[Rfam]
RNA: MIR4371 microRNA precursor family
Organism: Cajanus cajan
RNA sequence: CUAUCAAGUGAUAACGUGGUAGAUGAACUGGCACGUCAUCACCCAACAGUGUUUGCCGCAUCAUCACCAUGUCCACGUGGCAGUCCCUUGGAUGACGUGGCAGACACUGUUGGGUGAUGACGUGCCAGUUCAUCUACCACGUUAUCACUUGAUAGAG
Numbered sequence: 001c002u003a004u005c006a007a008g009u010g011a012u013a014a015c016g017u018g019g020u021a022g023a024u025g026a027a028c029u030g031g032c033a034c035g036u037c038a039u040c041a042c043c044c045a046a047c048a049g050u051g052u053u054u055g056c057c058g059c060a061u062c063a064u065c066a067c068c069a070u071g072u073c074c075a076c077g078u079g080g081c082a083g084u085c086c087c088u089u090g091g092a093u094g095a096c097g098u099g100g101c102a103g104a105c106a107c108u109g110u111u112g113g114g115u116g117a118u119g120a121c122g123u124g125c126c127a128g129u130u131c132a133u134c135u136a137c138c139a140c141g142u143u144a145u146c147a148c149u150u151g152a153u154a155g156a157g
Base pairs, nucleotide, nucleotide: 001155002154003153004152005151006150007149008148009147010146011145012144013143014142015141016140017139018138019137020136021135022134023133024132025131026130027129028128029127030126031125032124033123034122035121036120037119038118039117040116041115042114043113044112045111046110049107050106051105052104053103055101056100057099058098059097071093072092073091074090075089